[Rfam]
RNA sequence: GGAAGCUGGUUUCAGGUGGUGUUUUAGAGUACUGAUGAAUUAAAUCUAGCACCAUUUGAAAUCAGUGUUCU
Numbered sequence: 001g002g003a004a005g006c007u008g009g010u011u012u013c014a015g016g017u018g019g020u021g022u023u024u025u026a027g028a029g030u031a032c033u034g035a036u037g038a039a040u041u042a043a044a045u046c047u048a049g050c051a052c053c054a055u056u057u058g059a060a061a062u063c064a065g066u067g068u069u070c071u
Stems, first nucleotide, its partner, number of pairs: 001071004005066010016055006025048004
Rfam assigns this 71-nucleotide RNA sequence from Triplophysa tibetana to the family "mir-29 microRNA precursor family". It scores 67 bits against the family's covariance model. NCBI's taxonomy places the organism under Eukaryota, Craniata, Actinopterygii, Ostariophysi, Triplophysa. From the family's description: This family represents the microRNA (miRNA) precursors mir-29. For this family Rfam cites "microRNAs: tiny regulators with great potential" (Ambros, Cell, 2001).